[Rfam]
RNA sequence: CGUCUCCUCCACCUUCUCCUUGGUGGAUUCAGGCCCGGACCGAUGGUCCGGGCUCUUUUUU
Numbered sequence: 001c002g003u004c005u006c007c008u009c010c011a012c013c014u015u016c017u018c019c020u021u022g023g024u025g026g027a028u029u030c031a032g033g034c035c036c037g038g039a040c041c042g043a044u045g046g047u048c049c050g051g052g053c054u055c056u057u058u059u060u061u
Stems, first nucleotide, its partner, number of pairs: 008027006032054008
Source information:
The record is a 61-nucleotide sequence from Chitinasiproducens palmae, which matches "Betaproteobacteria toxic small RNA" in Rfam. On this family, see Kimelman et al., Genome Res 2012: "A vast collection of microbial genes that are toxic to bacteria". Overexpression in amino aid rich medium attenuates growth, suggesting role in repressing amino acid intake and metabolism. NCBI's taxonomy places the organism under Bacteria, Pseudomonadati, Pseudomonadota, Betaproteobacteria, Chitinasiproducens. It scores 56 bits against the family's covariance model. The base pairs follow the family's consensus structure, which was predicted with WAR.